[Rfam]
RNA sequence: UUUAUCCACUAGGGGGGCCUAUUAUAGGCUGAGAUCAAAUGGGAAUUUGAGACUCUUAGUACCUGAUCUGGUUAAUGCCAGCGUAGGGAAGUGGAAAAGACAUUGC
Numbered sequence: 001u002u003u004a005u006c007c008a009c010u011a012g013g014g015g016g017g018c019c020u021a022u023u024a025u026a027g028g029c030u031g032a033g034a035u036c037a038a039a040u041g042g043g044a045a046u047u048u049g050a051g052a053c054u055c056u057u058a059g060u061a062c063c064u065g066a067u068c069u070g071g072u073u074a075a076u077g078c079c080a081g082c083g084u085a086g087g088g089a090a091g092u093g094g095a096a097a098a099g100a101c102a103u104u105g106c
Stems, first nucleotide, its partner, number of pairs: 006094005011056004017029005036049005062087004068081004
A member of the RNA family "TPP riboswitch aptamer (THI element)" from Bacillus cereus, 106 nucleotides long. The family's consensus secondary structure is taken from published work. The source organism's lineage runs through Bacteria, Bacillota, Bacilli, Caryophanales and Bacillus cereus.